The record is a 73-nucleotide RNA from Cebus imitator, which matches "Small nucleolar RNA U105B" in Rfam. On this family, see Yang et al., Nucleic Acids Res 2006: "snoSeeker: an advanced computational package for screening of guide and orphan snoRNA genes in the human genome". Clan: SNORD105 clan. Pairs were carried over by alignment from the consensus structure, which was predicted with WAR. Taxonomically the source falls in Cebus (Eukaryota, Bilateria, Teleostomi, Mammalia). Its family is annotated with nucleolus and RNA processing in the Gene Ontology.
RNA sequence: CUGCAUGCAGCCGAUGACAGCACUCCUGCUGAGACUCUGAGUGCUCUGUCUCAAACGCCCUGACGCACUGUGG
Number, nucleotide and partner (000 for none) at each position: 001c000002u000003g000004c000005a000006u067007g066008c065009a000010g021011c020012c000013g018014a000015u000016g000017a000018c013019a000020g011021c010022a000023c000024u000025c000026c000027u000028g000029c048030u000031g046032a045033g044034a000035c000036u000037c000038u000039g000040a000041g000042u000043g000044c033045u032046c031047u000048g029049u000050c000051u000052c000053a000054a000055a000056c000057g000058c000059c000060c000061u000062g000063a000064c000065g008066c007067a006068c000069u000070g000071u000072g000073g000